c-di-AMP riboswitch aptamer (ydaO/yuaA leader): a 120-nucleotide RNA sequence from Haploplasma axanthum. It scores 77 bits against the family's covariance model.
[Rfam]
RNA sequence: AAGUAGAAAUAUCCGAAUCAACCGAGUGGGGGAACCAACAUAUUUGGGGUGAAUCAAUUGAAGGGAAACUUGGAAUCCCUAACCCGACAGCUAACCUCAUAGGAUUUAUCCAGGCGUACA
Numbered sequence: 001a002a003g004u005a006g007a008a009a010u011a012u013c014c015g016a017a018u019c020a021a022c023c024g025a026g027u028g029g030g031g032g033a034a035c036c037a038a039c040a041u042a043u044u045u046g047g048g049g050u051g052a053a054u055c056a057a058u059u060g061a062a063g064g065g066a067a068a069c070u071u072g073g074a075a076u077c078c079c080u081a082a083c084c085c086g087a088c089a090g091c092u093a094a095c096c097u098c099a100u101a102g103g104a105u106u107u108a109u110c111c112a113g114g115c116g117u118a119c120a
Stems, first nucleotide, its partner, number of pairs: 011105004018025002026100006036046002047085003055060001063079004